[Rfam]
RNA sequence: GGACUAGAAGACGGUGUGAAUGGGUCUAGACCCAGUCUUUGGCUGGAUCUGACCCAGGAAAGUCCCCGGGCCACCCUCUGCAGAGAUGCAGUCUCGGAAACGAGAAGUAUCAUGUGUGGAAAUUCUCCCGCAUACGUGCGGGCGGCUGAGACACGUGUGGAGCCGUUGAAUUUCCUCAUGAUCAGUUGGUCGAUAACACAGUUAUUCACAUGGUUCCUUGAACCAACAGAACGGGGCUUACGAUCUUCUAGUC
Numbered sequence: 001g002g003a004c005u006a007g008a009a010g011a012c013g014g015u016g017u018g019a020a021u022g023g024g025u026c027u028a029g030a031c032c033c034a035g036u037c038u039u040u041g042g043c044u045g046g047a048u049c050u051g052a053c054c055c056a057g058g059a060a061a062g063u064c065c066c067c068g069g070g071c072c073a074c075c076c077u078c079u080g081c082a083g084a085g086a087u088g089c090a091g092u093c094u095c096g097g098a099a100a101c102g103a104g105a106a107g108u109a110u111c112a113u114g115u116g117u118g119g120a121a122a123u124u125c126u127c128c129c130g131c132a133u134a135c136g137u138g139c140g141g142g143c144g145g146c147u148g149a150g151a152c153a154c155g156u157g158u159g160g161a162g163c164c165g166u167u168g169a170a171u172u173u174c175c176u177c178a179u180g181a182u183c184a185g186u187u188g189g190u191c192g193a194u195a196a197c198a199c200a201g202u203u204a205u206u207c208a209c210a211u212g213g214u215u216c217c218u219u220g221a222a223c224c225a226a227c228a229g230a231a232c233g234g235g236g237c238u239u240a241c242g243a244u245c246u247u248c249u250a251g252u253c
Stems, first nucleotide, its partner, number of pairs: 002253010014211006022055005032046006060239003064236004079090004092105005109182002115178002118175003132171002135168001143165004153158001213223004
RNase MRP: a 253-nucleotide sequence from Acer saccharum. A reference for the family is Schmitt et al. (1993), "Secondary structure of RNase MRP RNA as predicted by phylogenetic comparison", FASEB J. The family's consensus secondary structure is taken from published work. Lineage of the source: Eukaryota > Streptophyta > Spermatophyta > Sapindales > Acer. The family's RNA type in Rfam is ribozyme. The family is grouped with related families in Rfam's "RNaseP clan".